[Rfam]
About this RNA
This 181-nucleotide RNA from Planococcus halotolerans belongs to the Rfam family "Lysine riboswitch aptamer". Taxonomically the source falls in Planococcus (Bacteria, Bacillati, Caryophanales, Caryophanaceae). A search with the family's covariance model found it, with a score of 120 bits.

RNA sequence: AGUGAGGAUAGAGGCGCAAACACCAUCAGUAAGCAGAAUGAGGAGCACGGGCUCCGACGACUUCUGCCGGAAGGGGUGCUUGCCGAAGCGGCGGGGAGCCCCUGAUCCCUGUUGCUGGUCCUGCAUUUAAGAGAUGCCGGACUGUCAUGCGGAAUGUUCCGUAUGGAGGGCUAUCUGGCGU
Numbered sequence: 001a002g003u004g005a006g007g008a009u010a011g012a013g014g015c016g017c018a019a020a021c022a023c024c025a026u027c028a029g030u031a032a033g034c035a036g037a038a039u040g041a042g043g044a045g046c047a048c049g050g051g052c053u054c055c056g057a058c059g060a061c062u063u064c065u066g067c068c069g070g071a072a073g074g075g076g077u078g079c080u081u082g083c084c085g086a087a088g089c090g091g092c093g094g095g096g097a098g099c100c101c102c103u104g105a106u107c108c109c110u111g112u113u114g115c116u117g118g119u120c121c122u123g124c125a126u127u128u129a130a131g132a133g134a135u136g137c138c139g140g141a142c143u144g145u146c147a148u149g150c151g152g153a154a155u156g157u158u159c160c161g162u163a164u165g166g167a168g169g170g171c172u173a174u175c176u177g178g179c180g181u
Stems, first nucleotide, its partner, number of pairs: 006176006016083004021078004033067006087116011117143005123137005145166007
Its family is annotated with lysine biosynthetic process in the Gene Ontology.